[Rfam]
RNA sequence: GAGUUACAUUUAGCGUGCCAGGUUAAGGCUGACAAAGGCCGUCAACCGCAGCGAAAGCAAGUCUUAAUAGGGCGCAAUAGUACGCUGAAGUAGACCCGAAACCGGGUGAUCUACCCAUGUCCAGAGUGAAGCGGAAGUAACAUUUCGUGGAGGCUCGAACCAACCGUCGUUGAAAAGGCGGUGGAUGAGGUGUGGGUAGGGGUGAAAUGCCAAUCGAACCCGGAGAUAGCUGGUU
Numbered sequence: 001g002a003g004u005u006a007c008a009u010u011u012a013g014c015g016u017g018c019c020a021g022g023u024u025a026a027g028g029c030u031g032a033c034a035a036a037g038g039c040c041g042u043c044a045a046c047c048g049c050a051g052c053g054a055a056a057g058c059a060a061g062u063c064u065u066a067a068u069a070g071g072g073c074g075c076a077a078u079a080g081u082a083c084g085c086u087g088a089a090g091u092a093g094a095c096c097c098g099a100a101a102c103c104g105g106g107u108g109a110u111c112u113a114c115c116c117a118u119g120u121c122c123a124g125a126g127u128g129a130a131g132c133g134g135a136a137g138u139a140a141c142a143u144u145u146c147g148u149g150g151a152g153g154c155u156c157g158a159a160c161c162a163a164c165c166g167u168c169g170u171u172g173a174a175a176a177g178g179c180g181g182u183g184g185a186u187g188a189g190g191u192g193u194g195g196g197u198a199g200g201g202g203u204g205a206a207a208u209g210c211c212a213a214u215c216g217a218a219c220c221c222g223g224a225g226a227u228a229g230c231u232g233g234u235u
Stems, first nucleotide, its partner, number of pairs: 005092003009089010021047004027040003051058002061073004095233002098230001102223006111199011122187001124156004131148006160184003164181005201211003

Rfam assigns this 235-nucleotide part of an RNA from Desulfoscipio gibsoniae to the family "Bacterial large subunit ribosomal RNA". The base pairs follow the family's consensus structure, which is taken from published work. The organism belongs to Desulfoscipio gibsoniae, within Bacteria.